The record is a 101-nucleotide RNA, which matches "pemK RNA" in Rfam. It is annotated as a cis-regulatory element.

RNA sequence: AUAAUGGUACUUCCGUCUAGUCAUAAAGCCGAGCGUGAUAAUACCGUCGCAGCAAAUGAGGGCGGCCCGCAGAGAUCCUGGGGGAGAUGAAAUUUCUAUGG
Numbered sequence: 001a002u003a004a005u006g007g008u009a010c011u012u013c014c015g016u017c018u019a020g021u022c023a024u025a026a027a028g029c030c031g032a033g034c035g036u037g038a039u040a041a042u043a044c045c046g047u048c049g050c051a052g053c054a055a056a057u058g059a060g061g062g063c064g065g066c067c068c069g070c071a072g073a074g075a076u077c078c079u080g081g082g083g084g085a086g087a088u089g090a091a092a093u094u095u096c097u098a099u100g101g
Stems, first nucleotide, its partner, number of pairs: 012098001013065006066084003070080003085097003